The record is a 95-nucleotide RNA, which matches "Y RNA" in Rfam.
RNA sequence: GGCUGGUCUGAUGGUAGUGAGUAAUUAGAAUGUAUUAACAUUAGUGUCACUAAAGUUGGUAUACAACUCCCCACUGCUAAAUGUGACUGUCUGAA
Numbered sequence: 001g002g003c004u005g006g007u008c009u010g011a012u013g014g015u016a017g018u019g020a021g022u023a024a025u026u027a028g029a030a031u032g033u034a035u036u037a038a039c040a041u042u043a044g045u046g047u048c049a050c051u052a053a054a055g056u057u058g059g060u061a062u063a064c065a066a067c068u069c070c071c072c073a074c075u076g077c078u079a080a081a082u083g084u085g086a087c088u089g090u091c092u093g094a095a
Stems, first nucleotide, its partner, number of pairs: 001091003005088004010084001015079001016075004021070001033061003037057002

The literature on the family includes a 2000 paper in Nucleic Acids Res by Teunissen et al., "Conserved features of Y RNAs: a comparison of experimentally derived secondary structures".
The sequence is in the family's curated seed alignment.
It is annotated as a non-coding RNA gene.